[Rfam]
RNA: Eukaryotic large subunit ribosomal RNA, nucleotides 3039 to 3613
RNA sequence: GAAGACCCUGUUGAGCUUGACUCUAGUCCGACUUUGUGAGGAGACAUGACGGAUGUAGAAUAGGUGGGAGCUAGGUGCUUCUGUGCCUAGCGUCAGUGAAAUACCACUGCUGUCAUCGUCUCUUUACUUAUUCAGUGAAACGGGAACAAAAUGAUAUUUUGGAAUGAAGCACAUGCCGGGAUGCGUAGUUCAUGCUGCGUGUGUCGGUGUCUUGGUCGUGUCAGAUUAGUCGUGAUUUUCGGAUGCGGUGUUUGAGUUUGGAUGUGAUGUGCGACCCGUUCUGAAGACCAUGUCAGGCGGGGAGUUUGACUGGGGCGGUACAUCCGUCAAAUGGUAACGCGGGUGUCCUAAGGUGAGCUCAGCCAGGACGGAAACCUGGCGUGGAGUAAAAGGGCAAAAGCUUACUUGAUUUUGAUUUUCAGUACGAAUACAGACCGUGAAAGCGUGGCCUAUCGAUCCUUUUGAUUAUGAUAUUCGGAGUUUGAAGCAAGAGGUGUCAGAAAAGUUACCACAGGGAUAACUGGCUUGUGGCGGCCAAGCGUUCAUAGCGACGUCGCUUUUUGAUCCUUCGAUGU
Numbered sequence: 001g002a003a004g005a006c007c008c009u010g011u012u013g014a015g016c017u018u019g020a021c022u023c024u025a026g027u028c029c030g031a032c033u034u035u036g037u038g039a040g041g042a043g044a045c046a047u048g049a050c051g052g053a054u055g056u057a058g059a060a061u062a063g064g065u066g067g068g069a070g071c072u073a074g075g076u077g078c079u080u081c082u083g084u085g086c087c088u089a090g091c092g093u094c095a096g097u098g099a100a101a102u103a104c105c106a107c108u109g110c111u112g113u114c115a116u117c118g119u120c121u122c123u124u125u126a127c128u129u130a131u132u133c134a135g136u137g138a139a140a141c142g143g144g145a146a147c148a149a150a151a152u153g154a155u156a157u158u159u160u161g162g163a164a165u166g167a168a169g170c171a172c173a174u175g176c177c178g179g180g181a182u183g184c185g186u187a188g189u190u191c192a193u194g195c196u197g198c199g200u201g202u203g204u205c206g207g208u209g210u211c212u213u214g215g216u217c218g219u220g221u222c223a224g225a226u227u228a229g230u231c232g233u234g235a236u237u238u239u240c241g242g243a244u245g246c247g248g249u250g251u252u253u254g255a256g257u258u259u260g261g262a263u264g265u266g267a268u269g270u271g272c273g274a275c276c277c278g279u280u281c282u283g284a285a286g287a288c289c290a291u292g293u294c295a296g297g298c299g300g301g302g303a304g305u306u307u308g309a310c311u312g313g314g315g316c317g318g319u320a321c322a323u324c325c326g327u328c329a330a331a332u333g334g335u336a337a338c339g340c341g342g343g344u345g346u347c348c349u350a351a352g353g354u355g356a357g358c359u360c361a362g363c364c365a366g367g368a369c370g371g372a373a374a375c376c377u378g379g380c381g382u383g384g385a386g387u388a389a390a391a392g393g394g395c396a397a398a399a400g401c402u403u404a405c406u407u408g409a410u411u412u413u414g415a416u417u418u419u420c421a422g423u424a425c426g427a428a429u430a431c432a433g434a435c436c437g438u439g440a441a442a443g444c445g446u447g448g449c450c451u452a453u454c455g456a457u458c459c460u461u462u463u464g465a466u467u468a469u470g471a472u473a474u475u476c477g478g479a480g481u482u483u484g485a486a487g488c489a490a491g492a493g494g495u496g497u498c499a500g501a502a503a504a505g506u507u508a509c510c511a512c513a514g515g516g517a518u519a520a521c522u523g524g525c526u527u528g529u530g531g532c533g534g535c536c537a538a539g540c541g542u543u544c545a546u547a548g549c550g551a552c553g554u555c556g557c558u559u560u561u562u563g564a565u566c567c568u569u570c571g572a573u574g575u
Stems, first nucleotide, its partner, number of pairs: 007515004012511002014507005020305004027297002030294003036127010046116007063108005070091008131285005141278004169272005308321001309319003322344006347448002353405006359385002362380006386395002410434003415429004436445003459493006474486003524565001526563001528562001530558006539549002